RNA sequence: UGGCGCCCAACAUGGCCUGGAUACUGGGGAAAACGUGAGGGACACGACGAAAAAAGAAGGGGUGCACACCCAAUCAAACAAUAGUUCAGAGACGUCGCAGUAGCCUGCUGUGAUCGAGCUGACAGGUAAGUUGGUCGUCAAUCAUGGGGCAAGAAUUAAGUCAGCAUCAAAAGUAUGUGAUGCAGUUAAGAGAAGCGAUACAGGCAAGAGGAGUAAAGGUUACAACUGAGGAUUUAUUUCAUUUCUUUGAUUUUGUAAAAGACAUCUGCCCAU
Number, nucleotide and partner (000 for none) at each position: 001u000002g000003g000004c000005g000006c029007c028008c027009a000010a000011c000012a000013u023014g022015g000016c000017c000018u000019g000020g000021a000022u014023a013024c000025u000026g000027g008028g007029g006030a000031a000032a000033a000034c046035g045036u044037g000038a000039g000040g000041g000042a000043c000044a036045c035046g034047a000048c000049g000050a000051a000052a000053a000054a000055a000056g000057a000058a000059g000060g000061g000062g000063u000064g000065c000066a000067c000068a000069c000070c000071c000072a000073a000074u000075c000076a000077a000078a000079c000080a000081a000082u000083a000084g000085u124086u122087c121088a000089g000090a000091g000092a000093c116094g115095u000096c112097g111098c110099a109100g108101u000102a000103g000104c000105c000106u000107g000108c100109u099110g098111u097112g096113a000114u000115c094116g093117a000118g000119c000120u000121g087122a086123c000124a085125g000126g000127u000128a000129a000130g000131u000132u152133g000134g150135u149136c000137g000138u147139c146140a145141a000142u000143c000144a000145u140146g139147g138148g000149g135150c134151a000152a132153g000154a000155a000156u000157u200158a199159a000160g196161u195162c000163a000164g000165c000166a000167u000168c000169a000170a000171a000172a000173g000174u000175a000176u000177g000178u000179g000180a000181u000182g000183c000184a000185g000186u000187u000188a000189a000190g000191a000192g000193a000194a000195g161196c160197g000198a000199u158200a157201c000202a000203g000204g000205c000206a000207a000208g248209a247210g246211g245212a244213g243214u000215a000216a000217a235218g234219g233220u232221u231222a000223c000224a000225a000226c000227u000228g000229a000230g000231g221232a220233u219234u218235u217236a000237u000238u000239u000240c000241a000242u000243u213244u212245c211246u210247u209248u208249g000250a000251u000252u000253u000254u000255g000256u000257a000258a273259a000260a000261g270262a000263c268264a000265u000266c000267u000268g263269c000270c261271c000272a000273u258

Notes: Shown here is a 273-nucleotide RNA from Nannospalax galili, a member of the family "Mason-Pfizer monkey virus packaging signal". Gene Ontology term of the family: viral genome packaging. By type it is a cis-regulatory element. The base pairs follow the family's consensus structure, which was predicted with PFOLD. The match comes from Rfam's covariance-model search (140 bits). NCBI's taxonomy places the organism under Eukaryota, Eumetazoa, Rodentia, Myomorpha, Nannospalax.